[Rfam]
Rfam assigns this 109-nucleotide RNA from Chlorocebus sabaeus to the family "Y RNA". By type it is a non-coding RNA gene. Pairs were carried over by alignment from the consensus structure, which is taken from published work. For this family Rfam cites "5'-YRNA fragments derived by processing of transcripts from specific YRNA genes and pseudogenes are abundant in human serum and plasma" (Dhahbi et al., Physiol Genomics, 2013). About the family: Y RNAs are components of the Ro ribonucleoprotein particle (Ro RNP), in association with Ro60 and La proteins. The Y RNAs and Ro60 and La proteins are well conserved, but the function of the Ro RNP is not known. In humans the RNA component can be one of four small RNAs -- hY1, hY3, hY4 and hY5.
RNA sequence: AGCAGGUCCAAAGAUAGCGAGUUACCUCCAUUCAGUGUUCACAAUUACAGGCCAAGCGCUUUGUUCCACUCUUUUGCCCCUUCUCACUUCCGCACUUGACUAGUCUUUA
Numbered sequence: 001a002g003c004a005g006g007u008c009c010a011a012a013g014a015u016a017g018c019g020a021g022u023u024a025c026c027u028c029c030a031u032u033c034a035g036u037g038u039u040c041a042c043a044a045u046u047a048c049a050g051g052c053c054a055a056g057c058g059c060u061u062u063g064u065u066c067c068a069c070u071c072u073u074u075u076g077c078c079c080c081u082u083c084u085c086a087c088u089u090c091c092g093c094a095c096u097u098g099a100c101u102a103g104u105c106u107u108u109a
Stems, first nucleotide, its partner, number of pairs: 002104002005101004010097002015092001016088002019085003034070002037067001